[Rfam]
RNA sequence: UGCGGGGUAGAGCAGUCCGGCAGCUCGCGUGGCUCAUAACCACGAGGUCGGUGGUUCGAAUCCACCUCCCGCUA
Numbered sequence: 001u002g003c004g005g006g007g008u009a010g011a012g013c014a015g016u017c018c019g020g021c022a023g024c025u026c027g028c029g030u031g032g033c034u035c036a037u038a039a040c041c042a043c044g045a046g047g048u049c050g051g052u053g054g055u056u057c058g059a060a061u062c063c064a065c066c067u068c069c070c071g072c073u074a
Base pairs, nucleotide, nucleotide: 002072003071004070005069006068007067010026011025012024013023028044029043030042031041032040050066051065052064053063054062
Source information
The family of this 74-nucleotide RNA sequence from Stenotrophomonas maltophilia is "tRNA". About the family: Transfer RNA (tRNA) molecules are approximately 80 nucleotides in length. Their secondary structure includes four short double-helical elements and three loops (D, anti-codon, and T loops). It scores 58 bits against the family's covariance model. The family is grouped with related families in Rfam's "tRNA clan". The family's consensus secondary structure is taken from published work.